[Rfam]
RNA: U1 spliceosomal RNA
Organism: Scyliorhinus torazame
RNA sequence: GGAGCCACGUGGCAGGGGUGAAACCAUGAUCAAUAAGGUGGUUCGCCCAGGGUGAGGCGAGCACAUUGUACUUCGGGUGUGUUGACGCCUACGAUGUCCCCAAAUGCGGGAUACUCGACUGCAGAAUUUGUGGAGACCUCGCCAUGACGCCGUUUCG
Numbered sequence: 001g002g003a004g005c006c007a008c009g010u011g012g013c014a015g016g017g018g019u020g021a022a023a024c025c026a027u028g029a030u031c032a033a034u035a036a037g038g039u040g041g042u043u044c045g046c047c048c049a050g051g052g053u054g055a056g057g058c059g060a061g062c063a064c065a066u067u068g069u070a071c072u073u074c075g076g077g078u079g080u081g082u083u084g085a086c087g088c089c090u091a092c093g094a095u096g097u098c099c100c101c102a103a104a105u106g107c108g109g110g111a112u113a114c115u116c117g118a119c120u121g122c123a124g125a126a127u128u129u130g131u132g133g134a135g136a137c138c139u140c141g142c143c144a145u146g147a148c149g150c151c152g153u154u155u156c157g
Stems, first nucleotide, its partner, number of pairs: 012122004016048006023042005049090003054086001056083003061078002064075001092117003095113003099109002142157001146154003
Dot-bracket structure: ...........((((((((((.(((((..........)))))))))))(((..(.(((..((.(..........).))..)))..).))).((((((.((.......)).))).))).))))...................(...(((...)))..)